[Rfam]
RNA: Small nucleolar RNA snoR14
RNA sequence: GCGAUGUGAUGAUAGAAACUGGUAAUCCACUGAUCUAAUAAUUUGAUGUUACAUUGAAGUUCCGACAGGUUCUGAUCGC
Numbered sequence: 001g002c003g004a005u006g007u008g009a010u011g012a013u014a015g016a017a018a019c020u021g022g023u024a025a026u027c028c029a030c031u032g033a034u035c036u037a038a039u040a041a042u043u044u045g046a047u048g049u050u051a052c053a054u055u056g057a058a059g060u061u062c063c064g065a066c067a068g069g070u071u072c073u074g075a076u077c078g079c
Base pairs, nucleotide, nucleotide: 001079002078003077004076